This 123-nucleotide RNA belongs to the Rfam family "Betaproteobacteria-1 RNA". The family's consensus secondary structure is taken from published work. The sequence is in the family's curated seed alignment.
RNA sequence: UUCUUGGUUGGAGGCUCUAACGACAUACCAGCGAUCAAGACGAAAGUGCUACUGGGGGUAGUGGAUGUAACAGCACAAUAUAGGUGGCGAAGCUAGUGCCUAUUCCAUGAACGACUGGCGGGU
Dot-bracket structure: .(((((((((.................[[[[))))))))).....(((((.]]]]......{{{{......)))))...((((((......[[[[[[))))))}}}}......]]]]]]....
Numbered sequence: 001u002u003c004u005u006g007g008u009u010g011g012a013g014g015c016u017c018u019a020a021c022g023a024c025a026u027a028c029c030a031g032c033g034a035u036c037a038a039g040a041c042g043a044a045a046g047u048g049c050u051a052c053u054g055g056g057g058g059u060a061g062u063g064g065a066u067g068u069a070a071c072a073g074c075a076c077a078a079u080a081u082a083g084g085u086g087g088c089g090a091a092g093c094u095a096g097u098g099c100c101u102a103u104u105c106c107a108u109g110a111a112c113g114a115c116u117g118g119c120g121g122g123u
Stems, first nucleotide, its partner, number of pairs: 002040009028055004046076005062107004080103006092119006

Description: It is annotated as a small RNA.